[Rfam]
RNA sequence: AAUUGCAAAUCGCUUAAUCCCCAUCAGGGGGAACGGGGGAACCAACCGAGACGACAAGCCGAGCAACGGCGGCUUGACAAGUUUCGUUUAAAAGCCGCAAGGCUUUAGGGGUGUAUCCUCUCCGCGCCUACCGGAGAGGACGGAUACUCUCAGGUCCGAAUCCGACAGCUAACCUCGUCAGCGUGCAUGGGAGAUGAA
Numbered sequence: 001a002a003u004u005g006c007a008a009a010u011c012g013c014u015u016a017a018u019c020c021c022c023a024u025c026a027g028g029g030g031g032a033a034c035g036g037g038g039g040a041a042c043c044a045a046c047c048g049a050g051a052c053g054a055c056a057a058g059c060c061g062a063g064c065a066a067c068g069g070c071g072g073c074u075u076g077a078c079a080a081g082u083u084u085c086g087u088u089u090a091a092a093a094g095c096c097g098c099a100a101g102g103c104u105u106u107a108g109g110g111g112u113g114u115a116u117c118c119u120c121u122c123c124g125c126g127c128c129u130a131c132c133g134g135a136g137a138g139g140a141c142g143g144a145u146a147c148u149c150u151c152a153g154g155u156c157c158g159a160a161u162c163c164g165a166c167a168g169c170u171a172a173c174c175u176c177g178u179c180a181g182c183g184u185g186c187a188u189g190g191g192a193g194a195u196g197a198a
Stems, first nucleotide, its partner, number of pairs: 011183004018032003033178006043108001109163003117139008142157004
c-di-AMP riboswitch aptamer (ydaO/yuaA leader): a 198-nucleotide RNA sequence from Paenibacillus sabuli. About the family: This family represents a conserved RNA structure found upstream of the ydaO and yuaA genes in Bacillus subtilis and related genes in other bacteria. It scores 82 bits against the family's covariance model. Its family is annotated with cyclic-di-AMP binding and regulation of gene expression in the Gene Ontology.